RNA sequence: AGGAUGGUAUCCUCUGGGGAACCAUACCGCUUCAAUAAACUCAUAAUUCCAAGUAUUAUAACUUUUUUUCAAUUAAAUGAGGUAUGGUACCGCUUGGAGCCGGGACGGACCGAGACGGGGGU
Numbered sequence: 001a002g003g004a005u006g007g008u009a010u011c012c013u014c015u016g017g018g019g020a021a022c023c024a025u026a027c028c029g030c031u032u033c034a035a036u037a038a039a040c041u042c043a044u045a046a047u048u049c050c051a052a053g054u055a056u057u058a059u060a061a062c063u064u065u066u067u068u069u070c071a072a073u074u075a076a077a078u079g080a081g082g083u084a085u086g087g088u089a090c091c092g093c094u095u096g097g098a099g100c101c102g103g104g105a106c107g108g109a110c111c112g113a114g115a116c117g118g119g120g121g122u
Base pairs, nucleotide, nucleotide: 002028003027004025005024006023007022008021010020011019090118091117092116093114094113095112096111097110100108101107